The family of this 106-nucleotide sequence from Canis lupus is "mir-8834 microRNA precursor family". The family has 2 seed sequences and 13,926 matches in Rfam 15.1.
RNA sequence: AGGAGGAACAACCCCAGUGGAGGCGGCCAGCUCUGGAGCCCUGGAUUCAGCUCCCGCAGUAACUACAGAGCUCUAGGUCUGUAGGGCCUGGAUGCUCCGGAGGUGG
Numbered sequence: 001a002g003g004a005g006g007a008a009c010a011a012c013c014c015c016a017g018u019g020g021a022g023g024c025g026g027c028c029a030g031c032u033c034u035g036g037a038g039c040c041c042u043g044g045a046u047u048c049a050g051c052u053c054c055c056g057c058a059g060u061a062a063c064u065a066c067a068g069a070g071c072u073c074u075a076g077g078u079c080u081g082u083a084g085g086g087c088c089u090g091g092a093u094g095c096u097c098c099g100g101a102g103g104u105g106g
Base pairs, nucleotide, nucleotide: 002098003097004096005095007093009090010089012086013085014084022079023078024077025074026073029072030071031070032069033068034067035066037064041059042058043057
Background: A search with the family's covariance model found it, with a score of 62 bits. The family's consensus secondary structure was predicted with RNAalifold.